[Rfam]
RNA sequence: AGUUAAAUCGGAAGUUUUCAUAUUUCUGACACCUCGUAUGAAAACUGCAUGUGCAGUCUGAUUAUUUUGCAAGACUGAGGCUU
Dot-bracket structure: ((((.......................................(((((....))))).....................)))).

Source information: Small nucleolar RNA SNORD60: an 83-nucleotide sequence from Crocuta crocuta. Rfam 15.1 lists 825 matches to the family in 373 species. Its Rfam clan is "SNORD60 clan". A search with the family's covariance model found it, with a score of 80 bits. Pairs were carried over by alignment from the consensus structure, which was predicted with PFOLD. The family's RNA type in Rfam is C/D-box small nucleolar RNA.